The record is a 106-nucleotide sequence from Glycine max, which matches "MIR1520 microRNA precursor family" in Rfam.
[Rfam]
RNA sequence: UUCUAAUUGAACAUUGACAGUCACAUGCUAUGUUUUGAUUGGACGUUGACAACAAUAAUACAUUUUCAUCAUCCAAUUAGAAUGUAACACAUGACAGUUAACAUUC
Numbered sequence: 001u002u003c004u005a006a007u008u009g010a011a012c013a014u015u016g017a018c019a020g021u022c023a024c025a026u027g028c029u030a031u032g033u034u035u036u037g038a039u040u041g042g043a044c045g046u047u048g049a050c051a052a053c054a055a056u057a058a059u060a061c062a063u064u065u066u067c068a069u070c071a072u073c074c075a076a077u078u079a080g081a082a083u084g085u086a087a088c089a090c091a092u093g094a095c096a097g098u099u100a101a102c103a104u105u106c
Base pairs, nucleotide, nucleotide: 020095021094022093023092026089029086030085031084033082034081035080036079038077039076040075
Rfam links the family to the GO terms RISC complex and miRNA-mediated post-transcriptional gene silencing.
The source organism's lineage runs through Eukaryota, Euphyllophyta, Fabales, Papilionoideae and Glycine subgen. Soja.